[Rfam]
RNA sequence: GGAUAAUGACGACUCCAUGUGAUAAGGUCUCGUUCGACGUAAUGGUGAUUAACAGUCACCUUGCCGACCAUCCUGUUAUAUCACCACCCAUAAACUGAAUCC
Numbered sequence: 001g002g003a004u005a006a007u008g009a010c011g012a013c014u015c016c017a018u019g020u021g022a023u024a025a026g027g028u029c030u031c032g033u034u035c036g037a038c039g040u041a042a043u044g045g046u047g048a049u050u051a052a053c054a055g056u057c058a059c060c061u062u063g064c065c066g067a068c069c070a071u072c073c074u075g076u077u078a079u080a081u082c083a084c085c086a087c088c089c090a091u092a093a094a095c096u097g098a099a100u101c102c
Stems, first nucleotide, its partner, number of pairs: 001102004047062002
RNA: Small nucleolar RNA Z43